[Rfam]
This 95-nucleotide sequence from Corynebacterium uropygiale belongs to the Rfam family "TPP riboswitch aptamer (THI element)". The family's consensus secondary structure is taken from published work.
RNA sequence: GGCAGUGACACGGGGUGCCGCAGCCGCGGCUGAGAUUCAUACCCGUCGAACCUGAUCUAGCCAGUACUAGCGAAGGGAUGUCCGAUGACGACGCC
Dot-bracket structure: ......((((((((.((((((....)))))........)..)))).....(((...((((......))))...)))..)))).............
Numbered sequence: 001g002g003c004a005g006u007g008a009c010a011c012g013g014g015g016u017g018c019c020g021c022a023g024c025c026g027c028g029g030c031u032g033a034g035a036u037u038c039a040u041a042c043c044c045g046u047c048g049a050a051c052c053u054g055a056u057c058u059a060g061c062c063a064g065u066a067c068u069a070g071c072g073a074a075g076g077g078a079u080g081u082c083c084g085a086u087g088a089c090g091a092c093g094c095c
Stems, first nucleotide, its partner, number of pairs: 007082004011045004016039001017030005051076003057070004